[Rfam]
RNA sequence: GGCGAGUUGGCUGAGUGGUCUAAAGCGAUAGACUCGAAAUCUAUUAUCUUCGGAUGCGCAGGUUCGAAUCCUGCACUCGUCG
Numbered sequence: 001g002g003c004g005a006g007u008u009g010g011c012u013g014a015g016u017g018g019u020c021u022a023a024a025g026c027g028a029u030a031g032a033c034u035c036g037a038a039a040u041c042u043a044u045u046a047u048c049u050u051c052g053g054a055u056g057c058g059c060a061g062g063u064u065c066g067a068a069u070c071c072u073g074c075a076c077u078c079g080u081c082g
Stems, first nucleotide, its partner, number of pairs: 001081007010026003028044005058074005
RNA: tRNA
Organism: Ascobolus immersus